RNA: c-di-AMP riboswitch aptamer (ydaO/yuaA leader)
Organism: Streptomyces fumanus
RNA sequence: CCCAAUCGACCACCAACUCACGCACGGCAGGAGCGGGGGACCCAGGUAAGUCGCCGCGCCGGUCACCGGACCGGAGCGGCUCGGGGUGAAGCCGCGCCCGUGAGGGCGCGGCCGGGCACCUCCCGCCCGAACCCGACAGCUCACCUCGCAGGCGUAGGAGAGGACCUCA
Numbered sequence: 001c002c003c004a005a006u007c008g009a010c011c012a013c014c015a016a017c018u019c020a021c022g023c024a025c026g027g028c029a030g031g032a033g034c035g036g037g038g039g040a041c042c043c044a045g046g047u048a049a050g051u052c053g054c055c056g057c058g059c060c061g062g063u064c065a066c067c068g069g070a071c072c073g074g075a076g077c078g079g080c081u082c083g084g085g086g087u088g089a090a091g092c093c094g095c096g097c098c099c100g101u102g103a104g105g106g107c108g109c110g111g112c113c114g115g116g117c118a119c120c121u122c123c124c125g126c127c128c129g130a131a132c133c134c135g136a137c138a139g140c141u142c143a144c145c146u147c148g149c150a151g152g153c154g155u156a157g158g159a160g161a162g163g164a165c166c167u168c169a
Stems, first nucleotide, its partner, number of pairs: 001152002006032002033149006043083001084134003092111006114128004